[Rfam]
RNA sequence: CGGAAUCGGAAAUGCCUGCCGACGUCGUCGGCGACAUGCCCAGGUAGCCCCGGUCUUCAAGGCUACGGCGCAGGCCUCUGCGCUGACCGCGACCCGUUCGCUUCGCAUCCUGGCCGCGGACGAUCACCGCAGCCGUGGUGAUGGAUGC
Numbered sequence: 001c002g003g004a005a006u007c008g009g010a011a012a013u014g015c016c017u018g019c020c021g022a023c024g025u026c027g028u029c030g031g032c033g034a035c036a037u038g039c040c041c042a043g044g045u046a047g048c049c050c051c052g053g054u055c056u057u058c059a060a061g062g063c064u065a066c067g068g069c070g071c072a073g074g075c076c077u078c079u080g081c082g083c084u085g086a087c088c089g090c091g092a093c094c095c096g097u098u099c100g101c102u103u104c105g106c107a108u109c110c111u112g113g114c115c116g117c118g119g120a121c122g123a124u125c126a127c128c129g130c131a132g133c134c135g136u137g138g139u140g141a142u143g144g145a146u147g148c
Stems, first nucleotide, its partner, number of pairs: 012037003015033001018032006044066006052088004067084007116148003123142008